RNA sequence: AAAGAAGACCCUGUUGAGCUUGACUCUAUUCUGACUUUGUGAAAUGAUUCAUCGGGUGUAGGAUAGGUGGGAGGCGCUUGCGCCGGCCGUGAAAUACCACCACCGGUGCCAUCGUUUCGCUUAUUCGGUGAGGUGUGGGCGGGCGCGGAAGCGACCCGUUCUUGAGCAAAGCAGUCAGCGCAAGCUGGUUGUUGACGCAGUCCGAAGACAUAGUCAGGUGGGGAGUUUGGCUGGGGCGGCACACCUGUUAAAGGCUAACACAGGUGUCCUAAGAUGAGCUCAGAGCGGACGGAAACCUCUCGUAGAACAAAGGGUAAAAGCUCGUUUGACUGGGCUCCUCAGUACCGAGUCCAGCUGCGAAAGCAUGGCCUAUCGAUCCUGCGACCCUGAUUGACAACGCUCCUUGUUGGCGCAGGUGCCAGAAAGUUACCACAGGGAUAACUGGCUUGUGGCAGCCAAGCGUUCAUAGCGACGUUGCUUUUGAUUCUUCGAUGUCGGCUCUUCCUAUCAUUGUGAAGCAGAAUUCACCAAGCGUCGGAUUGUUCACCCGCAAAUAGGGAACGUGAGCUGGGUUUAGACCGUCGUGAGACAGGUUAGUUU
Numbered sequence: 001a002a003a004g005a006a007g008a009c010c011c012u013g014u015u016g017a018g019c020u021u022g023a024c025u026c027u028a029u030u031c032u033g034a035c036u037u038u039g040u041g042a043a044a045u046g047a048u049u050c051a052u053c054g055g056g057u058g059u060a061g062g063a064u065a066g067g068u069g070g071g072a073g074g075c076g077c078u079u080g081c082g083c084c085g086g087c088c089g090u091g092a093a094a095u096a097c098c099a100c101c102a103c104c105g106g107u108g109c110c111a112u113c114g115u116u117u118c119g120c121u122u123a124u125u126c127g128g129u130g131a132g133g134u135g136u137g138g139g140c141g142g143g144c145g146c147g148g149a150a151g152c153g154a155c156c157c158g159u160u161c162u163u164g165a166g167c168a169a170a171g172c173a174g175u176c177a178g179c180g181c182a183a184g185c186u187g188g189u190u191g192u193u194g195a196c197g198c199a200g201u202c203c204g205a206a207g208a209c210a211u212a213g214u215c216a217g218g219u220g221g222g223g224a225g226u227u228u229g230g231c232u233g234g235g236g237c238g239g240c241a242c243a244c245c246u247g248u249u250a251a252a253g254g255c256u257a258a259c260a261c262a263g264g265u266g267u268c269c270u271a272a273g274a275u276g277a278g279c280u281c282a283g284a285g286c287g288g289a290c291g292g293a294a295a296c297c298u299c300u301c302g303u304a305g306a307a308c309a310a311a312g313g314g315u316a317a318a319a320g321c322u323c324g325u326u327u328g329a330c331u332g333g334g335c336u337c338c339u340c341a342g343u344a345c346c347g348a349g350u351c352c353a354g355c356u357g358c359g360a361a362a363g364c365a366u367g368g369c370c371u372a373u374c375g376a377u378c379c380u381g382c383g384a385c386c387c388u389g390a391u392u393g394a395c396a397a398c399g400c401u402c403c404u405u406g407u408u409g410g411c412g413c414a415g416g417u418g419c420c421a422g423a424a425a426g427u428u429a430c431c432a433c434a435g436g437g438a439u440a441a442c443u444g445g446c447u448u449g450u451g452g453c454a455g456c457c458a459a460g461c462g463u464u465c466a467u468a469g470c471g472a473c474g475u476u477g478c479u480u481u482u483g484a485u486u487c488u489u490c491g492a493u494g495u496c497g498g499c500u501c502u503u504c505c506u507a508u509c510a511u512u513g514u515g516a517a518g519c520a521g522a523a524u525u526c527a528c529c530a531a532g533c534g535u536c537g538g539a540u541u542g543u544u545c546a547c548c549c550g551c552a553a554a555u556a557g558g559g560a561a562c563g564u565g566a567g568c569u570g571g572g573u574u575u576a577g578a579c580c581g582u583c584g585u586g587a588g589a590c591a592g593g594u595u596a597g598u599u600u
Stems, first nucleotide, its partner, number of pairs: 002600002010436004015432002017428005023226004030218007039120010050108006066101005073084002124206005134199004142155001144153003170193008229242001230240003243265006268368002274325006280306002283301003287297002307315002330354008356365003379415005395409004445485001447483001449482001451479006460470002496571001497569004501563001502560005509534001513528005536550003540546001577595004581590003
This 600-nucleotide part of an RNA from Thecamonas trahens belongs to the Rfam family "Eukaryotic large subunit ribosomal RNA".